[Rfam]
RNA sequence: GUUUCAAUACAUCUCAUGUUACGGUUCAAC
Numbered sequence: 001g002u003u004u005c006a007a008u009a010c011a012u013c014u015c016a017u018g019u020u021a022c023g024g025u026u027c028a029a030c
Stems, first nucleotide, its partner, number of pairs: 009019004
Dot-bracket structure: ........((((...))))...........
RNA: CRISPR RNA direct repeat element
Organism: Anaeromicropila populeti